Small nucleolar SNORD12/SNORD106: a 90-nucleotide RNA sequence from Anguilla anguilla.
The match comes from Rfam's covariance-model search (78 bits).
The family's RNA type in Rfam is C/D-box small nucleolar RNA.
Its Rfam clan is "SNORD12 clan".
[Rfam]
RNA sequence: GUUGGUGUUUGUGAUGACUAAGCUUUUUUCCCCAGCAGAUCGACCCUGUUGACUCUCUUGAUUUAAGCCAAACCUGUCUGACACACCAAC
Numbered sequence: 001g002u003u004g005g006u007g008u009u010u011g012u013g014a015u016g017a018c019u020a021a022g023c024u025u026u027u028u029u030c031c032c033c034a035g036c037a038g039a040u041c042g043a044c045c046c047u048g049u050u051g052a053c054u055c056u057c058u059u060g061a062u063u064u065a066a067g068c069c070a071a072a073c074c075u076g077u078c079u080g081a082c083a084c085a086c087c088a089a090c
Base pairs, nucleotide, nucleotide: 001090002089003088004087005086006085007084008083